[Rfam]
RNA sequence: CAAAAGGCUCUUUUCAGAGCCACCCACUGUCUCAGAAAAAGGCUGU
Numbered sequence: 001c002a003a004a005a006g007g008c009u010c011u012u013u014u015c016a017g018a019g020c021c022a023c024c025c026a027c028u029g030u031c032u033c034a035g036a037a038a039a040a041g042g043c044u045g046u
Base pairs, nucleotide, nucleotide: 006021007020008019009018010017011016

A member of the RNA family "Histone 3' UTR stem-loop" from Gorilla gorilla, 46 nucleotides long. The source organism's lineage runs through Eukaryota, Gnathostomata, Tetrapoda, Hominidae and Gorilla gorilla. A search with the family's covariance model found it, with a score of 45 bits. By type it is a cis-regulatory element. Pairs were carried over by alignment from the consensus structure, which is taken from published work.